A member of the RNA family "UnaL2 LINE 3' element" from Carassius auratus, 54 nucleotides long. The family's consensus secondary structure is taken from published work. Lineage of the source: Eukaryota > Opisthokonta > Clupeocephala > Cyprinoidei > Carassius. The family has 30 seed sequences and 493,311 matches in Rfam 15.1. It scores 61 bits against the family's covariance model. The family's RNA type in Rfam is cis-regulatory element.
Nucleotides: 054
Base pairs, nucleotide, nucleotide: 013043014041015040016039020036021035022034023033024032025031
Number, partner (000 for none) and nucleotide at each position: 001000c002000u003000g004000u005000c006000u007000u008000u009000c010000a011000u012000c013043u014041g015040u016039a017000a018000g019000u020036c021035g022034c023033u024032u025031u026000g027000g028000a029000u030000a031025a032024a033023a034022g035021c036020g037000u038000c039016u040015g041014c042000u043013a044000a045000a046000u047000g048000a049000a050000u051000a052000a053000a054000u